[Rfam]
RNA: SAM riboswitch aptamer (S box leader)
Organism: Heyndrickxia ginsengihumi
RNA sequence: UACUUAUCUAGAGAGAUGGAGGGAAUUGGCCCAAUGAAGUCUCGGCAGCGGGUUCUAAGAACACUGUGCCAAAUCCAACAAGCAUGUUCGCUUGAAAGAUAAGAA
Numbered sequence: 001u002a003c004u005u006a007u008c009u010a011g012a013g014a015g016a017u018g019g020a021g022g023g024a025a026u027u028g029g030c031c032c033a034a035u036g037a038a039g040u041c042u043c044g045g046c047a048g049c050g051g052g053u054u055c056u057a058a059g060a061a062c063a064c065u066g067u068g069c070c071a072a073a074u075c076c077a078a079c080a081a082g083c084a085u086g087u088u089c090g091c092u093u094g095a096a097a098g099a100u101a102a103g104a105a
Stems, first nucleotide, its partner, number of pairs: 001105001003103006013043005021032003026078004044070004049066002052062004074097001079094005